Small nucleolar RNA U19: a 158-nucleotide sequence from Raphanus sativus. The family's consensus secondary structure was predicted with WAR. It is annotated as an H/ACA-box small nucleolar RNA.
RNA sequence: AUCUGGCUUAGUUAGGUGGCAAACAUCAAUCUGAUCCAUCGAUACUUUUCUGUAUUGUUUGUUGGUCGUUUGACUUGAGGCUUUUUGUUUCUUUUGAGGAGGAGCUUCUGUUUUUCUUCAGUUCAACCUUCUUCUUAUGAAAAAAGCUUCAGACAUUA
Dot-bracket structure: ...((.(.(......).).))............(.(((...(((.(.......).)))....))))........(((((((................(((((((.(...................).)))))))...........)))))))......